MIR2275 microRNA precursor family: a 90-nucleotide sequence from Rosa chinensis. It scores 64 bits against the family's covariance model.

[Rfam]
RNA sequence: AAGUUGUAUGUGAGAAUUGGAGGAGACUAAACAAAGUCAACCUUUGGGAAGUAAUUUGUUUAGUUUCCUCUAAUAUCUCAUCUCCGACAU
Numbered sequence: 001a002a003g004u005u006g007u008a009u010g011u012g013a014g015a016a017u018u019g020g021a022g023g024a025g026a027c028u029a030a031a032c033a034a035a036g037u038c039a040a041c042c043u044u045u046g047g048g049a050a051g052u053a054a055u056u057u058g059u060u061u062a063g064u065u066u067c068c069u070c071u072a073a074u075a076u077c078u079c080a081u082c083u084c085c086g087a088c089a090u
Stems, first nucleotide, its partner, number of pairs: 004087003008083001011080004016074006023067008032058002